[Rfam]
RNA sequence: UUAAUUUCUUGGCAAAGUAAUGGAAACAUUAUGACGCAAAGCUAUAGGGCCUUUUAAAUGGCAGCCAGUUGCAAUU
Numbered sequence: 001u002u003a004a005u006u007u008c009u010u011g012g013c014a015a016a017g018u019a020a021u022g023g024a025a026a027c028a029u030u031a032u033g034a035c036g037c038a039a040a041g042c043u044a045u046a047g048g049g050c051c052u053u054u055u056a057a058a059u060g061g062c063a064g065c066c067a068g069u070u071g072c073a074a075u076u
Base pairs, nucleotide, nucleotide: 012037013036017032018031019030020029021028022027040070041069042068043067047066048065049062050061051060
Dot-bracket structure: ...........((...((((((....))))))...))..((((...(((((........)))..))))))......